[Rfam]
Shown here is a 102-nucleotide sequence from Paenibacillus sp. J31TS4, a member of the family "Purine riboswitch aptamer".
The organism belongs to Paenibacillus, within Bacteria.
RNA sequence: UACCUACAGCAAAAUAUGACUCGUAUAUCGUCGGGGAUAUGGCCCGACAGUCUCUACCCAAAAGCCGUAAAGUUUUGGACUACGAGUCGGAAAUGCCGUGAA
Numbered sequence: 001u002a003c004c005u006a007c008a009g010c011a012a013a014a015u016a017u018g019a020c021u022c023g024u025a026u027a028u029c030g031u032c033g034g035g036g037a038u039a040u041g042g043c044c045c046g047a048c049a050g051u052c053u054c055u056a057c058c059c060a061a062a063a064g065c066c067g068u069a070a071a072g073u074u075u076u077g078g079a080c081u082a083c084g085a086g087u088c089g090g091a092a093a094u095g096c097c098g099u100g101a102a
Stems, first nucleotide, its partner, number of pairs: 018088008030048006058078006